[Rfam]
RNA sequence: GCAACUUGAAGCUGGCGAGCAAGGACAUCGUCGUGUUCCGCUCGCUGCUGGGCAUCUCGUGGAUGUGGUUCUUCGGCGCCACCUUCCUGUCGCAGUUCCCGUCUUUCGCCAAGGACGUGCUG
Numbered sequence: 001g002c003a004a005c006u007u008g009a010a011g012c013u014g015g016c017g018a019g020c021a022a023g024g025a026c027a028u029c030g031u032c033g034u035g036u037u038c039c040g041c042u043c044g045c046u047g048c049u050g051g052g053c054a055u056c057u058c059g060u061g062g063a064u065g066u067g068g069u070u071c072u073u074c075g076g077c078g079c080c081a082c083c084u085u086c087c088u089g090u091c092g093c094a095g096u097u098c099c100c101g102u103c104u105u106u107c108g109c110c111a112a113g114g115a116c117g118u119g120c121u122g
Base pairs, nucleotide, nucleotide: 010049011048012047014045017042022037023036025034026033051121052120053119054118055117057115058114060112062110063105065103067099068098071095072094074092075091076090077089078088

The record is a 122-nucleotide RNA from Vitreoscilla sp., which matches "Burkholderia RNA 11" in Rfam. The organism belongs to Vitreoscilla, within Bacteria. For this family Rfam cites "Experimental identification of small non-coding regulatory RNAs in the opportunistic human pathogen Burkholderia cenocepacia J2315" (Ramos et al., Genomics, 2013). Co-purified with Hfq, expression confirmed by Northern blot. Predicted target marZ. Overlaps coding sequence. The family's consensus secondary structure was predicted with RNAfold. The match comes from Rfam's covariance-model search (97 bits).